Description:
The family of this 57-nucleotide sequence from Hyphomonas neptunium is "terC RNA". Lineage of the source: Bacteria > Pseudomonadati > Pseudomonadota > Alphaproteobacteria > Hyphomonas neptunium. The family's RNA type in Rfam is cis-regulatory element.
RNA sequence: AGAUGGUUCCGGGCCCCUCUGGCGUUUGCGGCGGCAAGCGCGAUGUCGGACACCCCA
Numbered sequence: 001a002g003a004u005g006g007u008u009c010c011g012g013g014c015c016c017c018u019c020u021g022g023c024g025u026u027u028g029c030g031g032c033g034g035c036a037a038g039c040g041c042g043a044u045g046u047c048g049g050a051c052a053c054c055c056c057a
Base pairs, nucleotide, nucleotide: 006051007050009049010048011047012046022041023040024039025038026037027036028035029034